A member of the RNA family "FMN riboswitch aptamer (RFN element)" from Halanaerobium saccharolyticum, 121 nucleotides long.

RNA sequence: UAUUAUCUUCAGGGUAAGGUGAGUUUUAAGCAAUUCCUAACCGGUGGUAUAGUCCACGAGCUUCAGCUGAACUGGUGAAAUUCCAGUACCGACGGUAAAGUCCGGAAUAAAGAAGAUUAAA
Number, nucleotide and partner (000 for none) at each position: 001u000002a000003u119004u000005a117006u116007c115008u114009u113010c112011a000012g000013g000014g000015u000016a000017a038018g037019g036020u000021g000022a000023g000024u000025u000026u000027u000028a000029a000030g000031c000032a000033a000034u000035u000036c019037c018038u017039a000040a101041c100042c091043g090044g057045u056046g055047g054048u000049a000050u000051a000052g089053u088054c047055c046056a045057c044058g000059a000060g067061c066062u000063u000064c000065a000066g061067c060068u000069g000070a000071a087072c086073u085074g084075g083076u000077g000078a000079a000080a000081u000082u000083c075084c074085a073086g072087u071088a053089c052090c043091g042092a000093c104094g103095g102096u000097a000098a000099a000100g041101u040102c095103c094104g093105g000106a000107a000108u000109a000110a000111a000112g010113a009114a008115g007116a006117u005118u000119a003120a000121a000